A member of the RNA family "ryfA RNA" from Callosobruchus maculatus, 297 nucleotides long.

[Rfam]
RNA sequence: CUGGACCUUUCCGCCGCCUCGCAAACGGGCACCGACUUAAGGGAAGGAGCUUCCAUUGCCGUAAAUGCAAGCACUAACCUGCGCUUGCUCUCGCGUCUUAUUCGUCGGUGGGUAUGCCGUGAAACGGUCUUAGCUAAGACCAUUCAAUGAAAAAAUACUGUGUUAUUUUUCUCGUUGUCUCCGGGGCUUUGUUGUCGUCACAGGGCGAGGGUUGGAAGAUUUCCGACAACUCUCUGAACGUGACGAUCAACGUCUCCGGCAAGUAGCGAGGGAGGCCCCUCCGGGGGCCUUUUCUUU
Numbered sequence: 001c002u003g004g005a006c007c008u009u010u011c012c013g014c015c016g017c018c019u020c021g022c023a024a025a026c027g028g029g030c031a032c033c034g035a036c037u038u039a040a041g042g043g044a045a046g047g048a049g050c051u052u053c054c055a056u057u058g059c060c061g062u063a064a065a066u067g068c069a070a071g072c073a074c075u076a077a078c079c080u081g082c083g084c085u086u087g088c089u090c091u092c093g094c095g096u097c098u099u100a101u102u103c104g105u106c107g108g109u110g111g112g113u114a115u116g117c118c119g120u121g122a123a124a125c126g127g128u129c130u131u132a133g134c135u136a137a138g139a140c141c142a143u144u145c146a147a148u149g150a151a152a153a154a155a156u157a158c159u160g161u162g163u164u165a166u167u168u169u170u171c172u173c174g175u176u177g178u179c180u181c182c183g184g185g186g187c188u189u190u191g192u193u194g195u196c197g198u199c200a201c202a203g204g205g206c207g208a209g210g211g212u213u214g215g216a217a218g219a220u221u222u223c224c225g226a227c228a229a230c231u232c233u234c235u236g237a238a239c240g241u242g243a244c245g246a247u248c249a250a251c252g253u254c255u256c257c258g259g260c261a262a263g264u265a266g267c268g269a270g271g272g273a274g275g276c277c278c279c280u281c282c283g284g285g286g287g288c289c290u291u292u293u294c295u296u297u
Base pairs, nucleotide, nucleotide: 007046008045009044010043011042012041014028015027016026029036059184060183068087069086070085071084072083074081091122092121093120094119095118097116100113101112102111103110104109124143126141127140128139129138130137145177146176147175148174149173150172152169153168154167155166156165157164186264187263189262190261191260192259193258214224215223216222217221239252240251241250269295270294271292272291273290274289275288276287277286278285279284
On this family, see Wassarman et al., Genes Dev 2001: "Identification of novel small RNAs using comparative genomics and microarrays". The family's consensus secondary structure was predicted with RNAalifold. This family consists of a number of bacterial RNA genes of 305 bases in length.